[Rfam]
RNA: TPP riboswitch aptamer (THI element)
Organism: Renibacterium salmoninarum
RNA sequence: AGAGCUGACACGGGGUGCCAGGCCAGGAGGGCAGGCUGAGAAUCGAUACCCGUUGAACCUGUCCGGUUAGCACCGGCGGAGGGAUGUCAGAUGCUGCCGCU
Numbered sequence: 001a002g003a004g005c006u007g008a009c010a011c012g013g014g015g016u017g018c019c020a021g022g023c024c025a026g027g028a029g030g031g032c033a034g035g036c037u038g039a040g041a042a043u044c045g046a047u048a049c050c051c052g053u054u055g056a057a058c059c060u061g062u063c064c065g066g067u068u069a070g071c072a073c074c075g076g077c078g079g080a081g082g083g084a085u086g087u088c089a090g091a092u093g094c095u096g097c098c099g100c101u
Stems, first nucleotide, its partner, number of pairs: 006089005011052004016046001017036003021032001058082003063076004